[Rfam]
RNA sequence: UAAAAGGGCCGACUGGCAAUCAUGCCACAUGAGGUGUAGCAAUGCACCUAAUGCCGUAUGGAUAUCAAGACAUAUGGGCGGCAUAAUUUAUGGAAUUCGGAGGGCUAGCAGCGAACUGCUGGCCCCAC
Numbered sequence: 001u002a003a004a005a006g007g008g009c010c011g012a013c014u015g016g017c018a019a020u021c022a023u024g025c026c027a028c029a030u031g032a033g034g035u036g037u038a039g040c041a042a043u044g045c046a047c048c049u050a051a052u053g054c055c056g057u058a059u060g061g062a063u064a065u066c067a068a069g070a071c072a073u074a075u076g077g078g079c080g081g082c083a084u085a086a087u088u089u090a091u092g093g094a095a096u097u098c099g100g101a102g103g104g105c106u107a108g109c110a111g112c113g114a115a116c117u118g119c120u121g122g123c124c125c126c127a128c
Stems, first nucleotide, its partner, number of pairs: 008082004014027005028053003032049007054077007100126001103124009
Notes
Shown here is a 128-nucleotide RNA from Closterium sp. NIES-68, a member of the family "U11 spliceosomal RNA". It scores 78 bits against the family's covariance model. The family's consensus secondary structure is taken from published work. The organism belongs to Closterium peracerosum-strigosum-littorale complex, within Eukaryota. Clan: U1 clan.